[Rfam]
Notes
Shown here is a 119-nucleotide RNA from Fonticella tunisiensis, a member of the family "Ribosomal protein L20 leader". It scores 66 bits against the family's covariance model. A reference for the family is Zengel and Lindahl (1994), "Diverse mechanisms for regulating ribosomal protein synthesis in Escherichia coli", Prog Nucleic Acid Res Mol Biol. The family's RNA type in Rfam is cis-regulatory leader. The organism belongs to Fonticella, within Bacteria.
RNA sequence: AGUGAUAAGUAGAAGCCAUCCGCUUCUCACCUUACGCCACAGGUAGUAAGGUUAUUAAACUGGUUUUGUCUGGAGUAUCUUUGCGGAUGGAUUAUAUCCAUCCGCUUUUUAUAUAUGUC
Numbered sequence: 001a002g003u004g005a006u007a008a009g010u011a012g013a014a015g016c017c018a019u020c021c022g023c024u025u026c027u028c029a030c031c032u033u034a035c036g037c038c039a040c041a042g043g044u045a046g047u048a049a050g051g052u053u054a055u056u057a058a059a060c061u062g063g064u065u066u067u068g069u070c071u072g073g074a075g076u077a078u079c080u081u082u083g084c085g086g087a088u089g090g091a092u093u094a095u096a097u098c099c100a101u102c103c104g105c106u107u108u109u110u111a112u113a114u115a116u117g118u119c
Stems, first nucleotide, its partner, number of pairs: 011027006029052003034047002037043002083105009